A member of the RNA family "Ribosomal protein L19 leader" from Bacillus subtilis, 42 nucleotides long. The sequence is in the family's curated seed alignment. Rfam describes the family as follows. This family is a putative r-protein leader autoregulatory structure found in B. subtilis and other low-GC Gram-positive bacteria. On this family, see Zengel and Lindahl, Prog Nucleic Acid Res Mol Biol 1994: "Diverse mechanisms for regulating ribosomal protein synthesis in Escherichia coli". Rfam links the family to the GO term regulation of gene expression. By type it is a cis-regulatory leader. Pairs were carried over by alignment from the consensus structure, which was predicted with CMfinder.
[Rfam]
RNA sequence: ACGAUGUUCCGCUGUGCCGGUUUUUGUGGCCAAGAGCAUCUG
Numbered sequence: 001a002c003g004a005u006g007u008u009c010c011g012c013u014g015u016g017c018c019g020g021u022u023u024u025u026g027u028g029g030c031c032a033a034g035a036g037c038a039u040c041u042g
Stems, first nucleotide, its partner, number of pairs: 003040007013032002016030004